The record is a 230-nucleotide sequence from Firmicutes bacterium CAG:145, which matches "Bacterial large signal recognition particle RNA" in Rfam. For this family Rfam cites "SRPDB: Signal Recognition Particle Database" (Rosenblad et al., Nucleic Acids Res, 2003). Rfam classes the family as a non-coding RNA gene. Pairs were carried over by alignment from the consensus structure, which is taken from published work.

RNA sequence: UUGUUACAAUCGUUCGCUUCGUCUGUGACAAGCGAAUUCGUUGGGAGCUACGCUCCGAUUCAAAUUGUCCUUAAAGAGCUUCGCCUGGCAUGGUUUGGGUCCUGCGCAAUGGGAUGCCGUGAACCUUGUCAGGUCCGGAAGGAAGCAGCAAUAAGCGGAAGUUCUUAUGUGCCGCAGAUCAGCCUUCUCCAACGCCACGCGCGGCUCUUUAAGGGCAAUUUUCGUAAUGA
Numbered sequence: 001u002u003g004u005u006a007c008a009a010u011c012g013u014u015c016g017c018u019u020c021g022u023c024u025g026u027g028a029c030a031a032g033c034g035a036a037u038u039c040g041u042u043g044g045g046a047g048c049u050a051c052g053c054u055c056c057g058a059u060u061c062a063a064a065u066u067g068u069c070c071u072u073a074a075a076g077a078g079c080u081u082c083g084c085c086u087g088g089c090a091u092g093g094u095u096u097g098g099g100u101c102c103u104g105c106g107c108a109a110u111g112g113g114a115u116g117c118c119g120u121g122a123a124c125c126u127u128g129u130c131a132g133g134u135c136c137g138g139a140a141g142g143a144a145g146c147a148g149c150a151a152u153a154a155g156c157g158g159a160a161g162u163u164c165u166u167a168u169g170u171g172c173c174g175c176a177g178a179u180c181a182g183c184c185u186u187c188u189c190c191a192a193c194g195c196c197a198c199g200c201g202c203g204g205c206u207c208u209u210u211a212a213g214g215g216c217a218a219u220u221u222u223c224g225u226a227a228u229g230a
Base pairs, nucleotide, nucleotide: 001230002229003228004227005226006225007224008060009059010058011057013043044056045055046054047053048052062221063220064219065218066217067216069214070213071212072211073210074209075208076207077206078205082203083202084199086197087196088195089194092190093189097185098184099183100182102177103176104175105174106173107169108168110167111166112165113164114163115160117158118157119156120155126151127150128149129148134143135142136141